The family of this 144-nucleotide RNA sequence from Micromonospora pisi is "c-di-AMP riboswitch aptamer (ydaO/yuaA leader)". Rfam links the family to the GO terms cyclic-di-AMP binding and regulation of gene expression. Taxonomically the source falls in Micromonospora (Bacteria, Bacillati, Actinomycetes, Micromonosporales).
RNA sequence: GGAACAGACCCGCUGAGUCGUAAUUGUUACGAGCCGGGGACCCACAGUAGUCAUGGGGUGAAUCCGCGAACCUUUGGUUCGCGGUAGGGCGAGCUUCCCGCCCGAAUCCGUCAGCUAACCCGGUAGGCGGUCUCGGAAGGAGAA
Numbered sequence: 001g002g003a004a005c006a007g008a009c010c011c012g013c014u015g016a017g018u019c020g021u022a023a024u025u026g027u028u029a030c031g032a033g034c035c036g037g038g039g040a041c042c043c044a045c046a047g048u049a050g051u052c053a054u055g056g057g058g059u060g061a062a063u064c065c066g067c068g069a070a071c072c073u074u075u076g077g078u079u080c081g082c083g084g085u086a087g088g089g090c091g092a093g094c095u096u097c098c099c100g101c102c103c104g105a106a107u108c109c110g111u112c113a114g115c116u117a118a119c120c121c122g123g124u125a126g127g128c129g130g131u132c133u134c135g136g137a138a139g140g141a142g143a144a
Stems, first nucleotide, its partner, number of pairs: 011129004018032003033124006043055002056109003064084006087103004